The record is a 134-nucleotide RNA sequence from Panicum virgatum, which matches "MIR827 microRNA precursor family" in Rfam. The family is grouped with related families in Rfam's "MIR827 microRNA precursor clan".
RNA sequence: ACUUGUUUUGUUGGUGGUCAUCUAACCAUGCUCCGAUCCGGUGCAUGGAUCAUGGAUUGCGGUCAUGACCCAUGACCGUCAUGGACUGAUCAUGGUCUUGCGUGCGCGGUUAGAUGACCAUCAGCAAACAAGUU
Numbered sequence: 001a002c003u004u005g006u007u008u009u010g011u012u013g014g015u016g017g018u019c020a021u022c023u024a025a026c027c028a029u030g031c032u033c034c035g036a037u038c039c040g041g042u043g044c045a046u047g048g049a050u051c052a053u054g055g056a057u058u059g060c061g062g063u064c065a066u067g068a069c070c071c072a073u074g075a076c077c078g079u080c081a082u083g084g085a086c087u088g089a090u091c092a093u094g095g096u097c098u099u100g101c102g103u104g105c106g107c108g109g110u111u112a113g114a115u116g117a118c119c120a121u122c123a124g125c126a127a128a129c130a131a132g133u134u
Stems, first nucleotide, its partner, number of pairs: 005129004010125018029106003
Rfam 15.1 lists 57 matches to the family in 50 species. Its family is annotated with miRNA-mediated post-transcriptional gene silencing and RISC complex in the Gene Ontology. The match comes from Rfam's covariance-model search (76 bits).